Shown here is a 91-nucleotide sequence from Spinacia oleracea, a member of the family "small nucleolar RNA snoR114". A search with the family's covariance model found it, with a score of 51 bits. The literature on the family includes a 2009 paper in Nucleic Acids Res by Chen and Wu, "Mining small RNA sequencing data: a new approach to identify small nucleolar RNAs in Arabidopsis". The family has 24 seed sequences and 1,645 matches in Rfam 15.1.
RNA sequence: AAGCAGUGAUUAAUUCUGCGCAUAAUUGUGGUACCAUUGGGGUCUCCACGAUCCUCUCUUCACCCAGUAGAAAACUUGUGCAUCUGAGCUU
Dot-bracket structure: ((((...................................................................................))))

The base pairs follow the family's consensus structure, which was predicted with RNAalifold. Rfam links the family to the GO terms RNA processing and nucleolus.